[Rfam]
RNA: Small nucleolar RNA Z161/Z228
Organism: Papaver nudicaule
Nucleotides: 091
Stems, first nucleotide, its partner, number of pairs: 001091001003089002048054002
Number, partner (000 for none) and nucleotide at each position: 001091a002000u003089u004088c005000c006000a007000g008000g009000u010000g011000a012000u013000g014000a015000a016000a017000a018000u019000u020000g021000a022000u023000u024000u025000a026000a027000a028000a029000c030000u031000c032000a033000c034000g035000a036000c037000g038000g039000u040000c041000a042000u043000c044000a045000g046000a047000g048054a049053c050000u051000u052000u053049g054048u055000g056000u057000c058000g059000u060000u061000a062000u063000u064000g065000a066000u067000u068000c069000g070000a071000a072000a073000u074000c075000u076000a077000u078000u079000u080000u081000u082000u083000c084000u085000g086000a087000u088004g089003g090000u091001u